mir-432 microRNA precursor family: a 69-nucleotide RNA from Tupaia belangeri. The literature on the family includes a 2009 paper in PLoS One by Goff et al., "Ago2 immunoprecipitation identifies predicted microRNAs in human embryonic stem cells and neural precursors". It is one of the family's seed sequences. The family's consensus secondary structure was predicted with RNAalifold.
[Rfam]
RNA sequence: UCUUGGAGUAGGUCAUUGGGUGGAUCCUCUGUUUCCCUAUGUGGGCCACUGGAUGGCUCCUCCAUGUCU
Numbered sequence: 001u002c003u004u005g006g007a008g009u010a011g012g013u014c015a016u017u018g019g020g021u022g023g024a025u026c027c028u029c030u031g032u033u034u035c036c037c038u039a040u041g042u043g044g045g046c047c048a049c050u051g052g053a054u055g056g057c058u059c060c061u062c063c064a065u066g067u068c069u
Base pairs, nucleotide, nucleotide: 002066004064005063006062007061008060011058012057013056014055015054016053017052019050020049021048022047023046025045026044027043